[Rfam]
About this RNA:
A member of the RNA family "DUF3800-IX RNA", 61 nucleotides long. It is annotated as a small RNA. Rfam describes the family as follows. Actinobacteria, Firmicutes (1 example), Nitrospirae, Proteobacteria, Verrucomicrobia (1 example). The base pairs follow the family's consensus structure, which is taken from published work. It is one of the family's seed sequences.

RNA sequence: GACCCAUGUCCGAAUUGUCACCGUAUGGUGCGCGUGCCGAUGGCUAGGACAUGGGUUUUUU
Numbered sequence: 001g002a003c004c005c006a007u008g009u010c011c012g013a014a015u016u017g018u019c020a021c022c023g024u025a026u027g028g029u030g031c032g033c034g035u036g037c038c039g040a041u042g043g044c045u046a047g048g049a050c051a052u053g054g055g056u057u058u059u060u061u
Stems, first nucleotide, its partner, number of pairs: 001057011016034003019030004036044003